[Rfam]
RNA sequence: GAACAUUCUCAGGGCGGGGUGGAAUUCCCCACCGGCGGUGACGCCGGGCCACGCGUGGCCCGGACGAGUCCGCGAGCGCUCCCGCAAGGGAGGUCAGCAGAUCCGGUUGGAACCCGGAACCGACGGUCAUAGUCCGGAUGGGAGAGAAGGAGA
Numbered sequence: 001g002a003a004c005a006u007u008c009u010c011a012g013g014g015c016g017g018g019g020u021g022g023a024a025u026u027c028c029c030c031a032c033c034g035g036c037g038g039u040g041a042c043g044c045c046g047g048g049c050c051a052c053g054c055g056u057g058g059c060c061c062g063g064a065c066g067a068g069u070c071c072g073c074g075a076g077c078g079c080u081c082c083c084g085c086a087a088g089g090g091a092g093g094u095c096a097g098c099a100g101a102u103c104c105g106g107u108u109g110g111a112a113c114c115c116g117g118a119a120c121c122g123a124c125g126g127u128c129a130u131a132g133u134c135c136g137g138a139u140g141g142g143a144g145a146g147a148a149g150g151a152g153a
Base pairs, nucleotide, nucleotide: 004150006148007147008146009145010144017029018028019027031133032132033122034121035073036072037071038070068120069119076098077097102118103117104116105115106114124136125135126134
RNA: FMN riboswitch aptamer (RFN element)